Source information: This 58-nucleotide RNA belongs to the Rfam family "Plastid-ccsA-ndhD-1 3UTR RNA". The family's consensus secondary structure was predicted with LocARNA.

[Rfam]
RNA sequence: UAAUCCGGCGAGAACCAUUUGAAUCACAACACUACUUGAUUCAAACGGUUCUCACAAA
Numbered sequence: 001u002a003a004u005c006c007g008g009c010g011a012g013a014a015c016c017a018u019u020u021g022a023a024u025c026a027c028a029a030c031a032c033u034a035c036u037u038g039a040u041u042c043a044a045a046c047g048g049u050u051c052u053c054a055c056a057a058a
Stems, first nucleotide, its partner, number of pairs: 008055001010053007018045009
For this family Rfam cites "Retrograde signaling in plants: A critical review focusing on the GUN pathway and beyond" (Richter et al., Plant Commun, 2023). Clan: Plastid-ccsA_ndhD 3UTR RNA clan. By type it is a cis-regulatory element.